RNA: Ribosomal protein L10 leader
RNA sequence: AUUAAAUAAGAUAAAUCUCCGCAGACAGUAGGUGCGAAAGCGUAACGGGAAACCAACCUACCGAGGAUUUAAAUAUUCGGGAUUGGAUAUUAUAAAGCCUCUUUACGUCUGCGUGAAGAGGCUUUAACUUUUAGUUG
Number, nucleotide and partner (000 for none) at each position: 001a000002u000003u000004a000005a000006a000007u000008a000009a000010g000011a000012u000013a000014a000015a000016u000017c000018u000019c000020c000021g000022c000023a000024g000025a000026c000027a000028g061029u060030a059031g058032g057033u056034g041035c040036g000037a000038a000039a000040g035041c034042g000043u000044a000045a000046c000047g000048g000049g000050a000051a000052a000053c000054c000055a000056a033057c032058c031059u030060a029061c028062c000063g000064a000065g000066g000067a000068u000069u000070u000071a000072a000073a000074u000075a000076u000077u000078c000079g000080g000081g000082a000083u000084u000085g000086g000087a000088u000089a000090u000091u000092a000093u000094a000095a000096a000097g122098c121099c120100u119101c118102u117103u116104u115105a114106c113107g000108u000109c000110u000111g000112c000113g106114u105115g104116a103117a102118g101119a100120g099121g098122c097123u000124u000125u000126a000127a000128c000129u000130u000131u000132u000133a000134g000135u000136u000137g000